[Rfam]
RNA sequence: CCUGCAUCCCUUAUUCACCUGAGCAGUCGUCUCCAUUGCAACGGGACUACUCAGUGAGUAAGGAUGGCAGG
Dot-bracket structure: (((((((((.((((((((.((((.((((................)))).)))))))))))))))).)))))
mir-1729 microRNA precursor family: a 71-nucleotide sequence from Turnix velox. The match comes from Rfam's covariance-model search (86 bits). The base pairs follow the family's consensus structure, which was predicted with RNAalifold.